RNA: IS605-orfB-I RNA
RNA sequence: ACCUUAUAAAGAUGUAGUUACGCAAGACAGUAACGCAUUUCCCUUUAAGGUGAUGUUAGACAGAGAAGUAUAAGCAAGAAGUCUUAUUGUGAAGCUCCGAGUUGAAAUAGGAUAAACUUAUAUGGAAUAGGUUAAUCGUAAGACCUUAUGUUGAAAAACAUUAAAAUUGACCUAAGAAUAAGGGAAUUUCUGAAUUUUCGUUAUUUUUAGUUACGGUGUU
Numbered sequence: 001a002c003c004u005u006a007u008a009a010a011g012a013u014g015u016a017g018u019u020a021c022g023c024a025a026g027a028c029a030g031u032a033a034c035g036c037a038u039u040u041c042c043c044u045u046u047a048a049g050g051u052g053a054u055g056u057u058a059g060a061c062a063g064a065g066a067a068g069u070a071u072a073a074g075c076a077a078g079a080a081g082u083c084u085u086a087u088u089g090u091g092a093a094g095c096u097c098c099g100a101g102u103u104g105a106a107a108u109a110g111g112a113u114a115a116a117c118u119u120a121u122a123u124g125g126a127a128u129a130g131g132u133u134a135a136u137c138g139u140a141a142g143a144c145c146u147u148a149u150g151u152u153g154a155a156a157a158a159c160a161u162u163a164a165a166a167u168u169g170a171c172c173u174a175a176g177a178a179u180a181a182g183g184g185a186a187u188u189u190c191u192g193a194a195u196u197u198u199c200g201u202u203a204u205u206u207u208u209a210g211u212u213a214c215g216g217u218g219u220u
Stems, first nucleotide, its partner, number of pairs: 001051006008044001010040006017034005022028001068123007082112007093103002096100001129146005135217006141167001148161005172210010183199004